[Rfam]
RNA sequence: GAACCGUUGCAACACUCUGGCCCUUACCGUUCUCUCCCUACGGGGUUUGGACACUAUUCCAAUGUGGUUUAGGCUUAUUUUAAGCAACGAAGAGCAAUUGACCCAUUACUCACCGCGGUAGCCUUGGUGGCAGACUUUAUGUCUGUCGCUGUGGUUACAGUGGUCCAUUUUUGUGGUCUACAU
Numbered sequence: 001g002a003a004c005c006g007u008u009g010c011a012a013c014a015c016u017c018u019g020g021c022c023c024u025u026a027c028c029g030u031u032c033u034c035u036c037c038c039u040a041c042g043g044g045g046u047u048u049g050g051a052c053a054c055u056a057u058u059c060c061a062a063u064g065u066g067g068u069u070u071a072g073g074c075u076u077a078u079u080u081u082a083a084g085c086a087a088c089g090a091a092g093a094g095c096a097a098u099u100g101a102c103c104c105a106u107u108a109c110u111c112a113c114c115g116c117g118g119u120a121g122c123c124u125u126g127g128u129g130g131c132a133g134a135c136u137u138u139a140u141g142u143c144u145g146u147c148g149c150u151g152u153g154g155u156u157a158c159a160g161u162g163g164u165c166c167a168u169u170u171u172u173g174u175g176g177u178c179u180a181c182a183u
Stems, first nucleotide, its partner, number of pairs: 007087003019075004026068005100178004113163004118158006

A member of the RNA family "Small nucleolar RNA snR80" from Penicillium canariense, 183 nucleotides long. Lineage of the source: Eukaryota > Dikarya > Eurotiomycetes > Eurotiales > Penicillium. The match comes from Rfam's covariance-model search (48 bits). The family's RNA type in Rfam is H/ACA-box small nucleolar RNA. Rfam 15.1 lists 447 matches to the family in 358 species. The literature on the family includes a 2004 paper in Nucleic Acids Res by Schattner et al., "Genome-wide searching for pseudouridylation guide snoRNAs: analysis of the Saccharomyces cerevisiae genome".